[Rfam]
RNA sequence: UUAUAACUGAAUAAUUUACCUAAGACUCAGGUGAUCCCGUGCGGAUCUUAAUAGUAUGCCUGCCGAGGAACGUAUAAUUUUAUCCGUAACUCUUAGUCUGGGUCACGGAUAUUUUUAGUUCUAA
Numbered sequence: 001u002u003a004u005a006a007c008u009g010a011a012u013a014a015u016u017u018a019c020c021u022a023a024g025a026c027u028c029a030g031g032u033g034a035u036c037c038c039g040u041g042c043g044g045a046u047c048u049u050a051a052u053a054g055u056a057u058g059c060c061u062g063c064c065g066a067g068g069a070a071c072g073u074a075u076a077a078u079u080u081u082a083u084c085c086g087u088a089a090c091u092c093u094u095a096g097u098c099u100g101g102g103u104c105a106c107g108g109a110u111a112u113u114u115u116u117a118g119u120u121c122u123a124a
Stems, first nucleotide, its partner, number of pairs: 028062005033047005083109005089103004
Rfam assigns this 124-nucleotide RNA sequence from Pediococcus claussenii to the family "Ribosomal protein L10 leader".
This family is a putative r-protein leader autoregulatory structure found in B. subtilis and other low-GC Gram-positive bacteria. It is located in the 5' untranslated regions of mRNAs encoding ribosomal proteins L10 and L12 (rplJ-rplL). A Rho-independent transcription terminator structure that is probably involved in regulation is included at the 3' end.
On this family, see Zengel and Lindahl, Prog Nucleic Acid Res Mol Biol 1994: "Diverse mechanisms for regulating ribosomal protein synthesis in Escherichia coli".
The family's RNA type in Rfam is cis-regulatory leader.